[Rfam]
RNA: Small Cajal body specific RNA 8
Organism: Actinia tenebrosa
RNA sequence: UGGGGUUUUGUAUACAGGGUACAGAUUAAGAUUUGGCUGAACCCUCACUGUAACCCCUAAAGAAACCGCCCUCUGAUGACAGUGUAUCCUCAGCAAUCACUACACUGACAGAUACGGGGCGAACAAGU
Number, nucleotide and partner (000 for none) at each position: 001u000002g057003g056004g055005g054006u053007u052008u000009u000010g000011u000012a000013u000014a000015c000016a045017g044018g043019g042020u000021a000022c000023a038024g037025a000026u035027u000028a000029a000030g000031a000032u000033u000034u000035g026036g000037c024038u023039g000040a000041a000042c019043c018044c017045u016046c000047a000048c000049u000050g000051u000052a007053a006054c005055c004056c003057c002058u000059a000060a000061a000062g000063a000064a000065a000066c000067c121068g120069c119070c118071c117072u116073c000074u000075g000076a000077u000078g000079a000080c107081a106082g105083u000084g000085u102086a101087u000088c000089c000090u000091c000092a000093g000094c000095a000096a000097u000098c000099a000100c000101u086102a085103c000104a000105c082106u081107g080108a000109c000110a000111g000112a000113u000114a000115c000116g072117g071118g070119g069120c068121g067122a000123a000124c000125a000126a000127g000128u000